RNA sequence: AGCUGGUUUCUUCUGUGGUGAUAAUUCCAUCAAGUGUUUAUCACCGGGAGUAAACUAGCUCG
Numbered sequence: 001a002g003c004u005g006g007u008u009u010c011u012u013c014u015g016u017g018g019u020g021a022u023a024a025u026u027c028c029a030u031c032a033a034g035u036g037u038u039u040a041u042c043a044c045c046g047g048g049a050g051u052a053a054a055c056u057a058g059c060u061c062g
Base pairs, nucleotide, nucleotide: 001060002059003058005056006055007054008053009052010050011049012048013047016046017045018044019043020042021041022040023039
The family of this 62-nucleotide sequence from Caenorhabditis brenneri is "mir-35_2 microRNA precursor family".
The base pairs follow the family's consensus structure, which was predicted with RNAalifold.
Clan: mir-36 clan.
Gene Ontology terms of the family: RISC complex and miRNA-mediated post-transcriptional gene silencing.